[Rfam]
RNA sequence: AACGUGUUCCGGGGUCGGUGUAAGUCCGAACCGGCGGUGACAGUCCGCGACCUCUUCUGGUUCUCCAGAAGGGCUGACUCGGUGAAAUUCCGAGACCGACAGUUAAAGUCUGGAUGGGAGGAACUCGUC
Numbered sequence: 001a002a003c004g005u006g007u008u009c010c011g012g013g014g015u016c017g018g019u020g021u022a023a024g025u026c027c028g029a030a031c032c033g034g035c036g037g038u039g040a041c042a043g044u045c046c047g048c049g050a051c052c053u054c055u056u057c058u059g060g061u062u063c064u065c066c067a068g069a070a071g072g073g074c075u076g077a078c079u080c081g082g083u084g085a086a087a088u089u090c091c092g093a094g095a096c097c098g099a100c101a102g103u104u105a106a107a108g109u110c111u112g113g114a115u116g117g118g119a120g121g122a123a124c125u126c127g128u129c
Stems, first nucleotide, its partner, number of pairs: 003127002006124005016028003030109002032098002034048004043096002052073002078094005100112003
RNA: FMN riboswitch aptamer (RFN element)
Organism: Tessaracoccus sp. ZS01